A member of the RNA family "Streptococcus sRNA SpF14" from Streptococcus pneumoniae, 120 nucleotides long. The base pairs follow the family's consensus structure, which was predicted with mfold. Rfam classes the family as a small RNA.

Nucleotides: 120
Base pairs, nucleotide, nucleotide: 006114007113008112009111010110013107014106015105016104017103020051021050022049024047025046026045027044028043030042031041032040033039055093056092057091058090059089060088061086062085063084064083065082066081068076069075
Number, partner (000 for none) and nucleotide at each position: 001000c002000a003000a004000a005000c006114a007113u008112a009111u010110a011000a012000a013107u014106u015105u016104g017103u018000a019000a020051u021050a022049c023000c024047g025046u026045u027044c028043a029000u030042a031041a032040u033039u034000g035000g036000u037000a038000u039033g040032a041031u042030u043028u044027g045026g046025a047024c048000a049022g050021u051020a052000g053000u054000u055093g056092u057091a058090u059089u060088u061086c062085u063084u064083a065082u066081g067000a068076u069075c070000a071000a072000u073000u074000g075069g076068a077000a078000u079000u080000a081066u082065a083064u084063a085062g086061g087000c088060a089059a090058a091057u092056a093055c094000u095000a096000a097000g098000a099000a100000g101000a102000g103017a104016c105015a106014a107013a108000a109000a110010u111009a112008u113007a114006u115000a116000a117000a118000u119000a120000u